[Rfam]
RNA: mir-2 microRNA precursor family
Organism: Brugia malayi
RNA sequence: CGACACGUCAAAGUGGUCAGUGAUGUGUCGCAAAAUGAAAUUCAUAUCACAGCCAGCUUUGAUGUGUUGUG
Number, nucleotide and partner (000 for none) at each position: 001c000002g000003a000004c000005a065006c064007g063008u062009c061010a060011a059012a058013g057014u055015g054016g053017u000018c052019a000020g050021u049022g048023a047024u000025g000026u046027g045028u044029c000030g000031c000032a000033a000034a000035a000036u000037g000038a000039a000040a000041u000042u000043c000044a028045u027046a026047u023048c022049a021050c020051a000052g018053c016054c015055a014056g000057c013058u012059u011060u010061g009062a008063u007064g006065u005066g000067u000068u000069g000070u000071g000